[Rfam]
RNA sequence: CAAUAUAGAACGGCGACUAAAUACGUCAAGUCGUGUGCAACGUCGCCAUGACCCACAUCGUUUGGG
Numbered sequence: 001c002a003a004u005a006u007a008g009a010a011c012g013g014c015g016a017c018u019a020a021a022u023a024c025g026u027c028a029a030g031u032c033g034u035g036u037g038c039a040a041c042g043u044c045g046c047c048a049u050g051a052c053c054c055a056c057a058u059c060g061u062u063u064g065g066g
Base pairs, nucleotide, nucleotide: 012047013046014045015044016043017042025038027037028036052066053065054064055063
Bacillaceae-1 RNA: a 66-nucleotide sequence from Bacillus sp. V59.32b. The source organism's lineage runs through Bacteria, Bacillati, Bacillota, Bacillaceae and Bacillus. It scores 43 bits against the family's covariance model. Rfam classes the family as a small RNA. The base pairs follow the family's consensus structure, which is taken from published work.